The record is a 128-nucleotide RNA from Formicarius rufipectus, which matches "Small nucleolar RNA SNORA17" in Rfam. About the family: snoRNA ACA 17 belongs to the H/ACA family of snoRNAs and is predicted to guide pseudouridylation of the 28S rRNA at positions U4659 and U4598. Its Rfam clan is "SNORA17 clan". It scores 60 bits against the family's covariance model. Rfam links the family to the GO terms nucleolus and RNA processing. Rfam 15.1 lists 5,784 matches to the family in 673 species.
[Rfam]
RNA sequence: ACUGGUCCAGCUUGUGUUGCAGGUGUGGCUGCAGUGCCACGUUUGUGUCAUUCGGUGUCAGAGAGGAUAAGGCGAGGUCUUCCCCUGGUGCUCUGACCCAUGUGGGCUCCCAGGAUUGCUCAACAACC
Numbered sequence: 001a002c003u004g005g006u007c008c009a010g011c012u013u014g015u016g017u018u019g020c021a022g023g024u025g026u027g028g029c030u031g032c033a034g035u036g037c038c039a040c041g042u043u044u045g046u047g048u049c050a051u052u053c054g055g056u057g058u059c060a061g062a063g064a065g066g067a068u069a070a071g072g073c074g075a076g077g078u079c080u081u082c083c084c085c086u087g088g089u090g091c092u093c094u095g096a097c098c099c100a101u102g103u104g105g106g107c108u109c110c111c112a113g114g115a116u117u118g119c120u121c122a123a124c125a126a127c128c
Stems, first nucleotide, its partner, number of pairs: 002061005007055002010052001014048002019046004024041006071124001074121003081115003087111002090107004
For this family Rfam cites "Mapping to nucleotide resolution of pseudouridine residues in large subunit ribosomal RNAs from representative eukaryotes, prokaryotes, archaebacteria, mitochondria and chloroplasts" (Ofengand and Bakin, J Mol Biol, 1997).